[Rfam]
Record summary: A member of the RNA family "raiA RNA" from Olsenella sp. HMSC062G07, 267 nucleotides long. NCBI's taxonomy places the organism under Bacteria, Coriobacteriia, Coriobacteriales, Atopobiaceae, Olsenella.
Nucleotides: 267
Stems, first nucleotide, its partner, number of pairs: 001267009012258003015252004063238003066076001069128006085122002095112001097110005120245001141231005146181005185224004194216002200209003
Number, partner (000 for none) and nucleotide at each position: 001267c002266u003265u004264a005263c006262u007261c008260a009259g010000g011000u012258c013257u014256g015252u016251g017250g018249u019000u020000g021000c022000g023000g024000g025000a026000g027000a028000g029000a030000g031000g032000c033000g034000c035000g036000c037000a038000c039000g040000a041000c042000c043000g044000c045000g046000u047000c048000c049000u050000c051000g052000c053000u054000c055000c056000c057000u058000a059000g060000u061000c062000c063238a064237u065236g066076g067000c068000a069128g070127a071126c072125g073124a074123g075000g076066c077000c078000a079000a080000a081000a082000g083000g084000a085122u086121c087000c088000a089000c090000g091000u092000a093000a094000g095112c096000c097110g098109g099108g100107c101106g102000u103000g104000a105000g106101c107100g108099u109098u110097c111000c112095g113000g114000c115000g116000a117000g118000c119000a120245u121086g122085g123074c124073u125072c126071g127070u128069c129000c130000u131000a132000g133000g134000g135000g136000u137000a138000a139000g140000c141231c142230g143229c144228a145227c146181c147180g148179c149178c150177c151000g152000a153000c154000a155000c156000c157000u158000u159000c160000g161000g162000g163000g164000c165000a166000u167000g168000g169000g170000g171000c172000c173000c174000c175000g176000c177150g178149g179148g180147c181146g182000a183000g184000a185224g186223g187222a188221c189000c190000u191000a192000c193000g194216g195215u196000g197000g198000g199000g200209g201208g202207c203000c204000g205000c206000a207202g208201c209200c210000c211000c212000g213000a214000a215195g216194c217000c218000a219000g220000a221188g222187u223186c224185c225000c226000g227145g228144u229143g230142c231141g232000c233000g234000a235000g236065u237064g238063u239000g240000g241000g242000g243000c244000c245120a246000a247000a248000u249018a250017c251016c252015a253000g254000g255000u256014c257013a258012g259009c260008u261007g262006a263005g264004u265003a266002a267001g